Shown here is a 72-nucleotide sequence from Copsychus sechellarum, a member of the family "Small nucleolar RNA SNORD63". Taxonomically the source falls in Copsychus (Eukaryota, Archosauria, Telluraves, Passeriformes). By type it is a C/D-box small nucleolar RNA.

[Rfam]
RNA sequence: GUGCAAUGAUGUCAAUGGUCAACACAUCAUUCUGAAGAAGGAUUGUGUGGAGCCCUUCAGGGACUGAGCGCC
Numbered sequence: 001g002u003g004c005a006a007u008g009a010u011g012u013c014a015a016u017g018g019u020c021a022a023c024a025c026a027u028c029a030u031u032c033u034g035a036a037g038a039a040g041g042a043u044u045g046u047g048u049g050g051a052g053c054c055c056u057u058c059a060g061g062g063a064c065u066g067a068g069c070g071c072c
Stems, first nucleotide, its partner, number of pairs: 001071004

Pairs were carried over by alignment from the consensus structure, which was predicted with PFOLD. Rfam describes the family as follows. snoRNA U63 is found in both humans and mice. Gene Ontology terms of the family: nucleolus and RNA processing.